[Rfam]
RNA sequence: UAUAAUCAGAAACAAUAUCAACCUAUAAGCUCAAUAAUAUGGUUUGAGCGUAUCUACAAUACUACCGUAAAUAGUAUUACUAGGCUAAUUAAGUAUAUAUGC
Numbered sequence: 001u002a003u004a005a006u007c008a009g010a011a012a013c014a015a016u017a018u019c020a021a022c023c024u025a026u027a028a029g030c031u032c033a034a035u036a037a038u039a040u041g042g043u044u045u046g047a048g049c050g051u052a053u054c055u056a057c058a059a060u061a062c063u064a065c066c067g068u069a070a071a072u073a074g075u076a077u078u079a080c081u082a083g084g085c086u087a088a089u090u091a092a093g094u095a096u097a098u099a100u101g102c
Base pairs, nucleotide, nucleotide: 018088020086022084023083024082025081029049030048031047032046033045034044058078059077060076061075062074063073064072
RNA: Purine riboswitch aptamer